[Rfam]
RNA: Gut-1 RNA
RNA sequence: CAAUGAAAUUCGUUUCUCUGGAACGAGUGAAAUAUCUUAGAUGUGAAAUAUGCCUGCGGCAUAUGAAAACAGGU
Dot-bracket structure: .......((((((((.....))))))))...((((.....))))...(((((((...)))))))..........